[Rfam]
RNA sequence: GGAUCGAUGAUGACUUAAAGAGUGAUCUAAUUUAAAUCUGAACAAAAUGAGUGACCAAAACACUUCUGUACCACUUCUGUGAGCUGAGGUCC
Number, nucleotide and partner (000 for none) at each position: 001g092002g091003a090004u089005c088006g000007a000008u000009g000010a000011u000012g000013a000014c000015u000016u000017a000018a000019a000020g000021a000022g000023u000024g000025a000026u053027c051028u050029a000030a000031u045032u044033u000034a000035a000036a000037u000038c000039u000040g000041a000042a000043c000044a032045a031046a000047a000048u000049g000050a028051g027052u000053g026054a000055c000056c000057a000058a000059a000060a000061c000062a000063c000064u000065u000066c000067u000068g000069u000070a000071c000072c000073a000074c000075u000076u000077c000078u000079g000080u000081g000082a000083g000084c000085u000086g000087a000088g005089g004090u003091c002092c001
RNA: Small nucleolar RNA SNORD116